[Rfam]
RNA: Glycine riboswitch aptamer
Organism: Koleobacter methoxysyntrophicus
RNA sequence: AUGAAGGGUGCGAGAGAGACCCUUCUAAGGGCGCCGAAGGGGUAAUCUGCAAAAUGGCCGGUUUGCGGAGAAACUCUCAGGCAAAAGGAUCGCAUCACGACG
Numbered sequence: 001a002u003g004a005a006g007g008g009u010g011c012g013a014g015a016g017a018g019a020c021c022c023u024u025c026u027a028a029g030g031g032c033g034c035c036g037a038a039g040g041g042g043u044a045a046u047c048u049g050c051a052a053a054a055u056g057g058c059c060g061g062u063u064u065g066c067g068g069a070g071a072a073a074c075u076c077u078c079a080g081g082c083a084a085a086a087g088g089a090u091c092g093c094a095u096c097a098c099g100a101c102g
Base pairs, nucleotide, nucleotide: 007096008095009094010093011092012091013090020031021030022029023028033082034081035080036078037077040076041075042074046069047068048067049066050065051064052063053062
Dot-bracket structure: ......(((((((......((((....)))).(((((..(((...((((((((........))))))))....))))).))).......)))))))......